[Rfam]
RNA sequence: ACACAGACGUCCGGGUUUCGUGACAGGCGAGCCGUUUUUUUCAAAAGUUGGUUCGUUGUCGACGAAACCUGCACGAUCUGUAA
Numbered sequence: 001a002c003a004c005a006g007a008c009g010u011c012c013g014g015g016u017u018u019c020g021u022g023a024c025a026g027g028c029g030a031g032c033c034g035u036u037u038u039u040u041u042c043a044a045a046a047g048u049u050g051g052u053u054c055g056u057u058g059u060c061g062a063c064g065a066a067a068c069c070u071g072c073a074c075g076a077u078c079u080g081u082a083a
Stems, first nucleotide, its partner, number of pairs: 003081004012071009029054005